[Rfam]
The record is a 61-nucleotide sequence from Ziziphus jujuba, which matches "Plastid-psbN 5UTR RNA" in Rfam.
Plastid psbN is a non-coding RNA (ncRNA) recognised in plastids.
The family's consensus secondary structure was predicted with LocARNA.
On this family, see Richter et al., Plant Commun 2023: "Retrograde signaling in plants: A critical review focusing on the GUN pathway and beyond".

RNA sequence: UGCGAUACCCAUCAAAGGAGUAGUUCCCCGCCUAGGAGCUACCUUACCAUAUUAUGAAUUC
Numbered sequence: 001u002g003c004g005a006u007a008c009c010c011a012u013c014a015a016a017g018g019a020g021u022a023g024u025u026c027c028c029c030g031c032c033u034a035g036g037a038g039c040u041a042c043c044u045u046a047c048c049a050u051a052u053u054a055u056g057a058a059u060u061c
Base pairs, nucleotide, nucleotide: 017045018044020042021041022040023039024038025037026036027035